Shown here is a 367-nucleotide sequence from Sphingomonas alpina, a member of the family "Bacterial RNase P class A". NCBI's taxonomy places the organism under Bacteria, Pseudomonadota, Alphaproteobacteria, Sphingomonadales, Sphingomonas. It is annotated as a ribozyme. The match comes from Rfam's covariance-model search (304 bits).
RNA sequence: CCAGAGGGUUGGGCGGCCGCGUCGUGCGCAAGCACGCCGAGGAAAGUCCGGGCUCCACGAAACGACGGUGCCGGGUAACGCCCGGCGGGGGUGACCCCAGGGAAAGUGCCACAGAGAGCAGACGGCGACGGCUUCGGCCACGUCAUGGUGAAAGGGUGCGGUAAAAGCGCACCGCGCGCCUGGUAACAGGGGCGGCACGGCAAACCCCACCGGGAGCAAGACCGAAUAGGGGCGGCACAUGAGCUUUGUUUCAGCUCGUCGCCCGGGUUGGUUGCUUGAGCCCGCAUGCAAAUGCGGGCCUAGAGGAAUGGUCGCACAUCGCAUUUCGGUGCGAGGACAGAACCCGGCUUACAGACCCUCUGGCAUU
Numbered sequence: 001c002c003a004g005a006g007g008g009u010u011g012g013g014c015g016g017c018c019g020c021g022u023c024g025u026g027c028g029c030a031a032g033c034a035c036g037c038c039g040a041g042g043a044a045a046g047u048c049c050g051g052g053c054u055c056c057a058c059g060a061a062a063c064g065a066c067g068g069u070g071c072c073g074g075g076u077a078a079c080g081c082c083c084g085g086c087g088g089g090g091g092u093g094a095c096c097c098c099a100g101g102g103a104a105a106g107u108g109c110c111a112c113a114g115a116g117a118g119c120a121g122a123c124g125g126c127g128a129c130g131g132c133u134u135c136g137g138c139c140a141c142g143u144c145a146u147g148g149u150g151a152a153a154g155g156g157u158g159c160g161g162u163a164a165a166a167g168c169g170c171a172c173c174g175c176g177c178g179c180c181u182g183g184u185a186a187c188a189g190g191g192g193c194g195g196c197a198c199g200g201c202a203a204a205c206c207c208c209a210c211c212g213g214g215a216g217c218a219a220g221a222c223c224g225a226a227u228a229g230g231g232g233c234g235g236c237a238c239a240u241g242a243g244c245u246u247u248g249u250u251u252c253a254g255c256u257c258g259u260c261g262c263c264c265g266g267g268u269u270g271g272u273u274g275c276u277u278g279a280g281c282c283c284g285c286a287u288g289c290a291a292a293u294g295c296g297g298g299c300c301u302a303g304a305g306g307a308a309u310g311g312u313c314g315c316a317c318a319u320c321g322c323a324u325u326u327c328g329g330u331g332c333g334a335g336g337a338c339a340g341a342a343c344c345c346g347g348c349u350u351a352c353a354g355a356c357c358c359u360c361u362g363g364c365a366u367u
Stems, first nucleotide, its partner, number of pairs: 001363010011352001013315006020039002023036005044350003048347005053216004061250004066212005071085005086100001087098004101207002106205002108201003123147002125143003130139003155173006174196001175194003179190004220273004230264006241257005280299008